This 129-nucleotide RNA from Xiphorhynchus elegans belongs to the Rfam family "Small nucleolar RNA SNORA55".
RNA sequence: GCACCAAAUCUUUCCCAUUCCUUACUGCUCAGUGUGGGCCUGGGGACACAUGGUGCUGACAGCAACACAGAGCAAAUCCAGACAAGUGACUCUUCUCUGAGAACCUGUCUCUACACCUCUGCAACAGUU
Numbered sequence: 001g002c003a004c005c006a007a008a009u010c011u012u013u014c015c016c017a018u019u020c021c022u023u024a025c026u027g028c029u030c031a032g033u034g035u036g037g038g039c040c041u042g043g044g045g046a047c048a049c050a051u052g053g054u055g056c057u058g059a060c061a062g063c064a065a066c067a068c069a070g071a072g073c074a075a076a077u078c079c080a081g082a083c084a085a086g087u088g089a090c091u092c093u094u095c096u097c098u099g100a101g102a103a104c105c106u107g108u109c110u111c112u113a114c115a116c117c118u119c120u121g122c123a124a125c126a127g128u129u
Base pairs, nucleotide, nucleotide: 001056002055003054004053005052012046013045014044015043016042017041020038021037068121069120070119071118072117080110081109082108083107084106086104087103092099
From the family's description: ACA55 is a member of the H/ACA class of snoRNA that guide the sites of modification of uridines to pseudouridines. It is annotated as an H/ACA-box small nucleolar RNA. Its family is annotated with RNA processing and nucleolus in the Gene Ontology. It scores 100 bits against the family's covariance model.